[Rfam]
RNA sequence: UGCUUUAGAACUCCGAUUUCAAACCUCCUCGUGGUGCUGGCUGGAAGAUAAUUGUUGCACAUUUUACACAACAAUUACUUUUUCUGUUCAUUGAGACGG
Numbered sequence: 001u002g003c004u005u006u007a008g009a010a011c012u013c014c015g016a017u018u019u020c021a022a023a024c025c026u027c028c029u030c031g032u033g034g035u036g037c038u039g040g041c042u043g044g045a046a047g048a049u050a051a052u053u054g055u056u057g058c059a060c061a062u063u064u065u066a067c068a069c070a071a072c073a074a075u076u077a078c079u080u081u082u083u084c085u086g087u088u089c090a091u092u093g094a095g096a097c098g099g
Stems, first nucleotide, its partner, number of pairs: 013099003017095003021091001023035003046083003050079001052077001054075004
RNA: drz-agam-1 ribozyme
Organism: Anopheles stephensi